Purine riboswitch aptamer: a 101-nucleotide RNA sequence from Clostridium gasigenes.
Rfam describes the family as follows. Riboswitches are metabolite binding domains within certain messenger RNAs that serve as precision sensors for their corresponding targets.

RNA sequence: AUAUUAUUAAUAUAAUAAUUUCGUAUAACUCCAAUAAUAUGGUUUGGAGGUCUCUACCAGGUACCAAUAAAUCCCUGAUUACGAAGAAUAUACACUAUAGG
Numbered sequence: 001a002u003a004u005u006a007u008u009a010a011u012a013u014a015a016u017a018a019u020u021u022c023g024u025a026u027a028a029c030u031c032c033a034a035u036a037a038u039a040u041g042g043u044u045u046g047g048a049g050g051u052c053u054c055u056a057c058c059a060g061g062u063a064c065c066a067a068u069a070a071a072u073c074c075c076u077g078a079u080u081a082c083g084a085a086g087a088a089u090a091u092a093c094a095c096u097a098u099a100g101g
Stems, first nucleotide, its partner, number of pairs: 019086007029049006058077004063072001